RNA sequence: UGGGUCGGUGAGACGGUCGCGUCACCUCCCCGGAGGUGCCGAGGAACGUCCGGGCUCCACAGAGCAGGGCGGUGGGCAACACCCACCCGGAGCAAUCCGCGAGACAGUGCCACAGAGAACAGACCGCCGUCGGGGUGACCCGGCGGUAAGGGUGAAACGGUGGUGUAAGAGACCACCAGGGAUCCGGGUGACCGGAUCCGCUCGGUAAACCUCGCCCGGAGCAAGGUCAGACAGAGGACGUCGAGGCUGCUCGCCGAGUCCUCGGGUAGACCGCUGGAGGCCGACGGCAACGUCGGUCCGAGAUAGAUGGCCGUCACCGCCGCGCAAGGGGCGGGACAGAACCCGGCGUACGGCCGGCCCAUUCG
Numbered sequence: 001u002g003g004g005u006c007g008g009u010g011a012g013a014c015g016g017u018c019g020c021g022u023c024a025c026c027u028c029c030c031c032g033g034a035g036g037u038g039c040c041g042a043g044g045a046a047c048g049u050c051c052g053g054g055c056u057c058c059a060c061a062g063a064g065c066a067g068g069g070c071g072g073u074g075g076g077c078a079a080c081a082c083c084c085a086c087c088c089g090g091a092g093c094a095a096u097c098c099g100c101g102a103g104a105c106a107g108u109g110c111c112a113c114a115g116a117g118a119a120c121a122g123a124c125c126g127c128c129g130u131c132g133g134g135g136u137g138a139c140c141c142g143g144c145g146g147u148a149a150g151g152g153u154g155a156a157a158c159g160g161u162g163g164u165g166u167a168a169g170a171g172a173c174c175a176c177c178a179g180g181g182a183u184c185c186g187g188g189u190g191a192c193c194g195g196a197u198c199c200g201c202u203c204g205g206u207a208a209a210c211c212u213c214g215c216c217c218g219g220a221g222c223a224a225g226g227u228c229a230g231a232c233a234g235a236g237g238a239c240g241u242c243g244a245g246g247c248u249g250c251u252c253g254c255c256g257a258g259u260c261c262u263c264g265g266g267u268a269g270a271c272c273g274c275u276g277g278a279g280g281c282c283g284a285c286g287g288c289a290a291c292g293u294c295g296g297u298c299c300g301a302g303a304u305a306g307a308u309g310g311c312c313g314u315c316a317c318c319g320c321c322g323c324g325c326a327a328g329g330g331g332c333g334g335g336a337c338a339g340a341a342c343c344c345g346g347c348g349u350a351c352g353g354c355c356g357g358c359c360c361a362u363u364c365g
Stems, first nucleotide, its partner, number of pairs: 001361009012315007020041002023038006046349003050346005055221004062252004067217005072086005087101001088099004102212002107210002109206003124151002126147009159177006179201001180199008225272004234263006245255003279298008
Rfam assigns this 365-nucleotide sequence from Curtobacterium sp. Leaf261 to the family "Bacterial RNase P class A". The family's RNA type in Rfam is ribozyme.